[Rfam]
The family of this 170-nucleotide RNA sequence from Saccharobesus litoralis is "Group II catalytic intron D1-D4-3". NCBI's taxonomy places the organism under Bacteria, Pseudomonadati, Gammaproteobacteria, Alteromonadales, Saccharobesus. About the family: Group II introns are found in rRNA, tRNA and mRNA of organelles in fungi, plants and protists, and also in mRNA in bacteria. Gene Ontology term of the family: Group II intron splicing. The base pairs follow the family's consensus structure.
Nucleotides: 170
Stems, first nucleotide, its partner, number of pairs: 001017006033170002037166001042157006050148003065145003074137003078133007085113004091106002094103001
Number, partner (000 for none) and nucleotide at each position: 001017u002016u003015a004014u005013u006012g007000g008000c009000c010000a011000a012006c013005g014004a015003u016002a017001a018000g019000g020000u021000c022000u023000g024000a025000a026000g027000g028000a029000a030000g031000c032000g033170a034169u035000a036000g037166g038000a039000a040000g041000u042157u043156a044155a045154c046153a047152g048000u049000a050148c051147g052146c053000a054000a055000u056000g057000a058000a059000a060000a061000u062000g063000a064000a065145c066144c067143u068000g069000u070000u071000u072000c073000g074137g075136c076135a077000g078133u079132u080131u081130a082129g083128g084127u085113g086112g087111g088110u089000a090000a091106g092105u093000u094103u095000g096000c097000a098000a099000a100000a101000u102000a103094g104000c105092a106091c107000g108000a109000a110088g111087c112086c113085c114000g115000a116000u117000a118000c119000u120000c121000a122000g123000u124000c125000a126000g127084a128083c129082c130081u131080a132079a133078a134000c135076u136075g137074u138000g139000u140000u141000u142000g143067a144066g145065g146052g147051u148050g149000g150000c151000a152047u153046u154045g155044u156043u157042a158000a159000c160000a161000g162000g163000g164000c165000g166037u167000c168000a169034g170033u